This 182-nucleotide RNA sequence from Acipenser ruthenus belongs to the Rfam family "Small nucleolar RNA SNORA81". The family has 28 seed sequences and 1,161 matches in Rfam 15.1. On this family, see Gu et al., Nucleic Acids Res 2005: "A novel experimental approach for systematic identification of box H/ACA snoRNAs from eukaryotes". The family's consensus secondary structure was predicted with WAR.
[Rfam]
RNA sequence: GUCUUCCUGUUCAAGCACUCUGCUAAAACUGUAAGAUCUAAGCCUGCUGGCCUGGAUCUUGUAGUGAUGCUAGUAGGAGUACACCCAGGAAGAAGAGCAAAUGCACAGCAUCGCAAUGAGACUGGGGCGGACCUCUUUCUUAAUGUCCAGUGUCCUUUGUCUUAAGAUUCUGUGCAACAUUG
Numbered sequence: 001g002u003c004u005u006c007c008u009g010u011u012c013a014a015g016c017a018c019u020c021u022g023c024u025a026a027a028a029c030u031g032u033a034a035g036a037u038c039u040a041a042g043c044c045u046g047c048u049g050g051c052c053u054g055g056a057u058c059u060u061g062u063a064g065u066g067a068u069g070c071u072a073g074u075a076g077g078a079g080u081a082c083a084c085c086c087a088g089g090a091a092g093a094a095g096a097g098c099a100a101a102u103g104c105a106c107a108g109c110a111u112c113g114c115a116a117u118g119a120g121a122c123u124g125g126g127g128c129g130g131a132c133c134u135c136u137u138u139c140u141u142a143a144u145g146u147c148c149a150g151u152g153u154c155c156u157u158u159g160u161c162u163u164a165a166g167a168u169u170c171u172g173u174g175c176a177a178c179a180u181u182g
Base pairs, nucleotide, nucleotide: 018079019078021075022074023073024072025071028068030066031065034059035058037056038055039054040053042051043050044049102176103175104174105173106172107171108170110168124153126151129148130147131146
NCBI's taxonomy places the organism under Eukaryota, Opisthokonta, Actinopteri, Acipenseridae, Acipenser.